The record is a 160-nucleotide sequence, which matches "FMN riboswitch aptamer (RFN element)" in Rfam.
RNA sequence: CAGCGUUCUCAGGGCGGGGUGCAAUUCCCCACCGGCGGUAUCUGCAGGCGACUGCAGCAGCCCGCGAGCGCCCGGACGCCGCCGUGAGCGGCAGCCGGGGUCAGCAGAUCUGGUGCGAUGCCAGAGCCGACGGUCACAGUCCGGAUGAAAGAGAUCGCGC
Numbered sequence: 001c002a003g004c005g006u007u008c009u010c011a012g013g014g015c016g017g018g019g020u021g022c023a024a025u026u027c028c029c030c031a032c033c034g035g036c037g038g039u040a041u042c043u044g045c046a047g048g049c050g051a052c053u054g055c056a057g058c059a060g061c062c063c064g065c066g067a068g069c070g071c072c073c074g075g076a077c078g079c080c081g082c083c084g085u086g087a088g089c090g091g092c093a094g095c096c097g098g099g100g101u102c103a104g105c106a107g108a109u110c111u112g113g114u115g116c117g118a119u120g121c122c123a124g125a126g127c128c129g130a131c132g133g134u135c136a137c138a139g140u141c142c143g144g145a146u147g148a149a150a151g152a153g154a155u156c157g158c159g160c
Base pairs, nucleotide, nucleotide: 003158004157005156007154008153009152010151017029018028019027031140032139033129034128035065036064037063038062060127061126068105069104109125110124111123112122113121131143132142133141